[Rfam]
RNA: U4 spliceosomal RNA
RNA sequence: AGCUUUGCGCAGAGGCAGUAUCGUGGCCAAUGAGGUUUAUCCGAGGCGCAAUUAAUUGUUAAUUGAAAACUUUUCCUAAAGUCUAUUCUCAGGACUAACACCAGGUAUGACCCAUCCACUACCCAUAGGAGUGUGACGUCACUGUGUCACUCUAGGUGGACACAGAGGUUUGUCCCUGGGGUUGUUGGAAGAUCUUGUUGGGU
Numbered sequence: 001a002g003c004u005u006u007g008c009g010c011a012g013a014g015g016c017a018g019u020a021u022c023g024u025g026g027c028c029a030a031u032g033a034g035g036u037u038u039a040u041c042c043g044a045g046g047c048g049c050a051a052u053u054a055a056u057u058g059u060u061a062a063u064u065g066a067a068a069a070c071u072u073u074u075c076c077u078a079a080a081g082u083c084u085a086u087u088c089u090c091a092g093g094a095c096u097a098a099c100a101c102c103a104g105g106u107a108u109g110a111c112c113c114a115u116c117c118a119c120u121a122c123c124c125a126u127a128g129g130a131g132u133g134u135g136a137c138g139u140c141a142c143u144g145u146g147u148c149a150c151u152c153u154a155g156g157u158g159g160a161c162a163c164a165g166a167g168g169u170u171u172g173u174c175c176c177u178g179g180g181g182u183u184g185u186u187g188g189a190a191g192a193u194c195u196u197g198u199u200g201g202g203u
Base pairs, nucleotide, nucleotide: 020052021051023049024048026047027046028045034042035041089179090178091177092175093174094173095172097170098169099168192203193202194201195200